[Rfam]
RNA: T-box leader
RNA sequence: AAGAAGGCAUUGAAGAAGGUCUAGUAGCUAAUUAUAUGGAAAAACUAGAGAGCUGACGGUUGGUGCAAGUCAGUCAAAAAGAUUAGUGAACUCCCCUUCCAGUCUUAAGAGUGAACGCUCGUUCAAGUAACUCUUAACGGGUCACGGCCGUUAUCCGUUUUAAGCGAACAAGUAGUAAACUUGUUAAUUUGGGUGGUACCGCGGGAAAUAUAUCAACUCUCGUCCCUUGA
Numbered sequence: 001a002a003g004a005a006g007g008c009a010u011u012g013a014a015g016a017a018g019g020u021c022u023a024g025u026a027g028c029u030a031a032u033u034a035u036a037u038g039g040a041a042a043a044a045c046u047a048g049a050g051a052g053c054u055g056a057c058g059g060u061u062g063g064u065g066c067a068a069g070u071c072a073g074u075c076a077a078a079a080a081g082a083u084u085a086g087u088g089a090a091c092u093c094c095c096c097u098u099c100c101a102g103u104c105u106u107a108a109g110a111g112u113g114a115a116c117g118c119u120c121g122u123u124c125a126a127g128u129a130a131c132u133c134u135u136a137a138c139g140g141g142u143c144a145c146g147g148c149c150g151u152u153a154u155c156c157g158u159u160u161u162a163a164g165c166g167a168a169c170a171a172g173u174a175g176u177a178a179a180c181u182u183g184u185u186a187a188u189u190u191g192g193g194u195g196g197u198a199c200c201g202c203g204g205g206a207a208a209u210a211u212a213u214c215a216a217c218u219c220u221c222g223u224c225c226c227u228u229g230a
Base pairs, nucleotide, nucleotide: 007103008102016098017097018096019095027087028086029085030084031083032082037077039075052074053073054072055071056070057069106136107135108134109133110132111131112130138150139149140148167185168184169183170182171181172180173179191226192225193224201223202222203221204220205219